[Rfam]
RNA sequence: UGGCGCCCAACGUGGGGCUCUGGAUAUGGGGGAUCCAGUGAGGAGGAAGACGCGAGGUUGCCGGCGCUUGUGAAAAGAAAAUAAAUUCCUUCGACCGCCGCGGGAGCCUGCCGCGCGGCAGCAGAAGGUGAGUGCGUCUGAAUAUGGGGCAGGAAUUAAGCCAGCAUCAGCUUUAUGUUAAGUAGUUAAAGGAUGCUUUAAAGACACAAGGAGUAAAGGUUAAAGGAUAUGAUUUAUUUAAAUUUUUUGAUUUUAUAGAGGAUAUUUGCCCUU
Number, nucleotide and partner (000 for none) at each position: 001u000002g000003g000004c000005g000006c032007c031008c030009a000010a000011c000012g027013u026014g025015g000016g000017g000018c000019u000020c000021u000022g000023g000024a000025u014026a013027u012028g000029g000030g008031g007032g006033a000034u000035c000036c000037a000038g000039u047040g000041a000042g000043g000044a000045g000046g000047a039048a000049g000050a000051c000052g000053c000054g000055a000056g000057g000058u000059u000060g000061c000062c000063g000064g000065c000066g000067c000068u000069u000070g000071u000072g000073a000074a000075a000076a000077g000078a000079a000080a000081a000082u000083a000084a000085a000086u000087u000088c128089c127090u126091u125092c000093g000094a000095c000096c121097g000098c000099c115100g114101c113102g112103g111104g000105a000106g000107c000108c000109u000110g000111c103112c102113g101114c100115g099116c000117g000118g000119c000120a000121g096122c000123a000124g000125a091126a090127g089128g088129u000130g000131a000132g000133u151134g150135c149136g000137u148138c147139u146140g145141a000142a000143u000144a000145u140146g139147g138148g137149g135150c134151a133152g000153g000154a000155a000156u000157u200158a199159a198160g196161c195162c000163a000164g000165c000166a000167u000168c000169a000170g000171c000172u000173u000174u000175a000176u000177g000178u000179u000180a000181a000182g000183u000184a000185g000186u000187u000188a000189a000190a000191g000192g000193a000194u000195g161196c160197u000198u159199u158200a157201a000202a000203g000204a000205c000206a000207c249208a248209a247210g246211g245212a244213g243214u242215a000216a000217a235218g234219g233220u232221u231222a230223a000224a000225g000226g000227a000228u000229a000230u222231g221232a220233u219234u218235u217236a000237u000238u000239u000240a000241a000242a214243u213244u212245u211246u210247u209248u208249g207250a000251u000252u000253u000254u000255a000256u000257a000258g273259a272260g271261g270262a000263u268264a000265u000266u000267u000268g263269c000270c261271c260272u259273u258

A member of the RNA family "Mason-Pfizer monkey virus packaging signal" from Propithecus coquereli, 273 nucleotides long. Gene Ontology term of the family: viral genome packaging. This family represents a group of sequences that are related to the Mason-Pfizer monkey virus (MPMV) packaging signal. The packaging signal is located in the 5' UTR and is required for specific RNA encapsidation. It is annotated as a cis-regulatory element. For this family Rfam cites "Mutational analysis of the predicted secondary RNA structure of the Mason-Pfizer monkey virus packaging signal" (Mustafa et al., Virus Res, 2004).